[Rfam]
The record is a 100-nucleotide RNA from Clostridium intestinale, which matches "Purine riboswitch aptamer" in Rfam. It scores 74 bits against the family's covariance model.

RNA sequence: GUCAGUCAAAAAGUACAAGCCCAUAUAUAUCUGAUAAUAUGGUUCAGAUGUUUCUACGAAAUUCCGUAAAAAUUUCGCUAUGGGUAAAUCAAUGGUGAUG
Numbered sequence: 001g002u003c004a005g006u007c008a009a010a011a012a013g014u015a016c017a018a019g020c021c022c023a024u025a026u027a028u029a030u031c032u033g034a035u036a037a038u039a040u041g042g043u044u045c046a047g048a049u050g051u052u053u054c055u056a057c058g059a060a061a062u063u064c065c066g067u068a069a070a071a072a073u074u075u076c077g078c079u080a081u082g083g084g085u086a087a088a089u090c091a092a093u094g095g096u097g098a099u100g
Base pairs, nucleotide, nucleotide: 019085020084021083022082023081024080025079029049030048031047032046033045034044058076059075060074061073062072063071